[Rfam]
RNA sequence: AAAGAAAAGACAGAAAUACCCAAUAUCUUGUUCUAGCAAGAUAUUGGGUAUUUCUAUCUUUAU
Numbered sequence: 001a002a003a004g005a006a007a008a009g010a011c012a013g014a015a016a017u018a019c020c021c022a023a024u025a026u027c028u029u030g031u032u033c034u035a036g037c038a039a040g041a042u043a044u045u046g047g048g049u050a051u052u053u054c055u056a057u058c059u060u061u062a063u
Stems, first nucleotide, its partner, number of pairs: 006061005012055007022045002025042006
Dot-bracket structure: .....(((((.(((((((...((.((((((......)))))).))...))))))).)))))..
Rfam assigns this 63-nucleotide RNA from Aegilops tauschii to the family "Plastid-psbA-4 3UTR RNA".
A reference for the family is Richter et al. (2023), "Retrograde signaling in plants: A critical review focusing on the GUN pathway and beyond", Plant Commun.
The source organism's lineage runs through Eukaryota, Spermatophyta, Petrosaviidae, commelinids and Aegilops tauschii.
Plastid psbA-4 is a non-coding RNA (ncRNA) present in plastids. It was identified in inverted repeat sequences in the 3 prime untranslate region (3UTR) of photosystem II quinone-binding protein (psbA).